This 128-nucleotide RNA from Mycobacterium parmense belongs to the Rfam family "TPP riboswitch aptamer (THI element)".
A search with the family's covariance model found it, with a score of 56 bits.
The organism belongs to Mycobacterium simiae complex, within Bacteria.
Pairs were carried over by alignment from the consensus structure, which is taken from published work.
RNA sequence: AAUGCUGGACACGGGAGCCCCGGGUGGCUGCGGGGCUGAGAGUGGGCACAACCAGGCGAACUGGGCCUGCCCUGACCGUCACACCUGAUCCGGGUCAUGCCGGCGAAGGGAGGCGAAGGAUGAGCAUG
Numbered sequence: 001a002a003u004g005c006u007g008g009a010c011a012c013g014g015g016a017g018c019c020c021c022g023g024g025u026g027g028c029u030g031c032g033g034g035g036c037u038g039a040g041a042g043u044g045g046g047c048a049c050a051a052c053c054a055g056g057c058g059a060a061c062u063g064g065g066c067c068u069g070c071c072c073u074g075a076c077c078g079u080c081a082c083a084c085c086u087g088a089u090c091c092g093g094g095u096c097a098u099g100c101c102g103g104c105g106a107a108g109g110g111a112g113g114c115g116a117a118g119g120a121u122g123a124g125c126a127u128g
Base pairs, nucleotide, nucleotide: 006116008114010112011079012078013077014076016073017036018035019034020033021032044072045071046070047069084109085108086107090103091102092101093100